The record is a 67-nucleotide RNA from Bombyx mori, which matches "mir-2774 microRNA precursor family" in Rfam. The family's consensus secondary structure was predicted with RNAalifold. NCBI's taxonomy places the organism under Eukaryota, Bilateria, Insecta, Aparaglossata, Bombyx. It scores 68 bits against the family's covariance model. Gene Ontology terms of the family: RISC complex and miRNA-mediated post-transcriptional gene silencing. The literature on the family includes a 2010 paper in BMC Genomics by Liu et al., "MicroRNAs of Bombyx mori identified by Solexa sequencing".

RNA sequence: ACAACUUCCGGACCGUCGAUAUGCCGUGCAAUUUCACCCGCUCGGUGGAAGAUCUUCCCUUUGUCAA
Numbered sequence: 001a002c003a004a005c006u007u008c009c010g011g012a013c014c015g016u017c018g019a020u021a022u023g024c025c026g027u028g029c030a031a032u033u034u035c036a037c038c039c040g041c042u043c044g045g046u047g048g049a050a051g052a053u054c055u056u057c058c059c060u061u062u063g064u065c066a067a
Stems, first nucleotide, its partner, number of pairs: 004064002010058003015053003020049001022047005028041002